[Rfam]
Record summary
small nucleolar RNA snoR114: an 84-nucleotide RNA sequence from Phoenix dactylifera. A reference for the family is Chen and Wu (2009), "Mining small RNA sequencing data: a new approach to identify small nucleolar RNAs in Arabidopsis", Nucleic Acids Res. Taxonomically the source falls in Phoenix (Eukaryota, Streptophyta, Euphyllophyta, Mesangiospermae). Rfam 15.1 lists 1,645 matches to the family in 183 species. By type it is a C/D-box small nucleolar RNA. It scores 49 bits against the family's covariance model.

RNA sequence: GAGCAAUGAGGACGAAGCGCAUCCUGUGAUGCCGGGAGCAUCACUACCGUCUGAUUAUUGGAUGACCUCAGCACCCCUGAGCUC
Numbered sequence: 001g002a003g004c005a006a007u008g009a010g011g012a013c014g015a016a017g018c019g020c021a022u023c024c025u026g027u028g029a030u031g032c033c034g035g036g037a038g039c040a041u042c043a044c045u046a047c048c049g050u051c052u053g054a055u056u057a058u059u060g061g062a063u064g065a066c067c068u069c070a071g072c073a074c075c076c077c078u079g080a081g082c083u084c
Base pairs, nucleotide, nucleotide: 001084002083003082004081